[Rfam]
Shown here is a 223-nucleotide RNA sequence from Terasakiella brassicae, a member of the family "permuted transfer-messenger RNA". Pairs were carried over by alignment from the consensus structure, which is taken from published work. It is annotated as a non-coding RNA gene. The match comes from Rfam's covariance-model search (144 bits). Its family is annotated with RNA catabolic process in the Gene Ontology. Bacterial tmRNA, also known as 10Sa RNA or SsrA, is named for its dual tRNA and mRNA-like properties. Its role is to liberate the mRNA from a stalled ribosome.
RNA sequence: GGCGCUAGAGGCGUGUAUGGAAUAAGCUGACUGGACCCGGGGGCGGUACCCGGCGCCUCCACCAUAAGCCGAUCGAACAGGUCGGUUUGUGAGGGGGGCGAAAUAGGAUCGACAGCGGUAGUAAAGAUACAGUGCUGCGCUCGGUGAGCUACCACCGAUAUCGGUGCAAAACUUGAUAAAUGCCAACGACAAUCGUAUGGCUCCGGUUGCAGCUGCUGCGUAA
Numbered sequence: 001g002g003c004g005c006u007a008g009a010g011g012c013g014u015g016u017a018u019g020g021a022a023u024a025a026g027c028u029g030a031c032u033g034g035a036c037c038c039g040g041g042g043g044c045g046g047u048a049c050c051c052g053g054c055g056c057c058u059c060c061a062c063c064a065u066a067a068g069c070c071g072a073u074c075g076a077a078c079a080g081g082u083c084g085g086u087u088u089g090u091g092a093g094g095g096g097g098g099c100g101a102a103a104u105a106g107g108a109u110c111g112a113c114a115g116c117g118g119u120a121g122u123a124a125a126g127a128u129a130c131a132g133u134g135c136u137g138c139g140c141u142c143g144g145u146g147a148g149c150u151a152c153c154a155c156c157g158a159u160a161u162c163g164g165u166g167c168a169a170a171a172c173u174u175g176a177u178a179a180a181u182g183c184c185a186a187c188g189a190c191a192a193u194c195g196u197a198u199g200g201c202u203c204c205g206g207u208u209g210c211a212g213c214u215g216c217u218g219c220g221u222a223a
Stems, first nucleotide, its partner, number of pairs: 001141005015130004027118003031115003037053005054100007142157004